[Rfam]
RNA sequence: UAGUUCCUUCAGGGUGAGGUGAGACAGCAUCAAGCUGUCAAUUCCUAAUCGGCGGUGAUGAUCUUUUUCGAAAGAGCUAAGUCCGCGAGCCUUCACAGGCAGGAACUGGUGCGAAUCCAGUACCGACGGUAUAGUCCGGAUGGGAGAAGGAAUGA
Numbered sequence: 001u002a003g004u005u006c007c008u009u010c011a012g013g014g015u016g017a018g019g020u021g022a023g024a025c026a027g028c029a030u031c032a033a034g035c036u037g038u039c040a041a042u043u044c045c046u047a048a049u050c051g052g053c054g055g056u057g058a059u060g061a062u063c064u065u066u067u068u069c070g071a072a073a074g075a076g077c078u079a080a081g082u083c084c085g086c087g088a089g090c091c092u093u094c095a096c097a098g099g100c101a102g103g104a105a106c107u108g109g110u111g112c113g114a115a116u117c118c119a120g121u122a123c124c125g126a127c128g129g130u131a132u133a134g135u136c137c138g139g140a141u142g143g144g145a146g147a148a149g150g151a152a153u154g155a
Stems, first nucleotide, its partner, number of pairs: 003153008017046003048135002050125002052086004081123002091099001105121005127138003
RNA: FMN riboswitch aptamer (RFN element)
Organism: Tumebacillus algifaecis